ylbH leader: a 128-nucleotide RNA from Bacilli bacterium VT-13-104. Taxonomically the source falls in Bacilli (Bacteria, Bacillati, Bacillota). Rfam's curators write: This family is a putative regulatory RNA structure that is found upstream of the ylbH gene in B. subtilis and related low GC Gram-positive bacteria. It scores 91 bits against the family's covariance model.
RNA sequence: UAAAAAAUAAACCUGCAGAAACUCUAUGUUCUGCAGGUUCCCUUUGUUUUUCAUUGAAAAACAAAUAGGCAAAGGGAGAGGAGAAACCGGAGGAAGAACUUAUGGGGAAGUUUAAGUCUUCUCCGUGU
Numbered sequence: 001u002a003a004a005a006a007a008u009a010a011a012c013c014u015g016c017a018g019a020a021a022c023u024c025u026a027u028g029u030u031c032u033g034c035a036g037g038u039u040c041c042c043u044u045u046g047u048u049u050u051u052c053a054u055u056g057a058a059a060a061a062c063a064a065a066u067a068g069g070c071a072a073a074g075g076g077a078g079a080g081g082a083g084a085a086a087c088c089g090g091a092g093g094a095a096g097a098a099c100u101u102a103u104g105g106g107g108a109a110g111u112u113u114a115a116g117u118c119u120u121c122u123c124c125g126u127g128u
Stems, first nucleotide, its partner, number of pairs: 010039011040076005045063003049060003088125004093121004098117005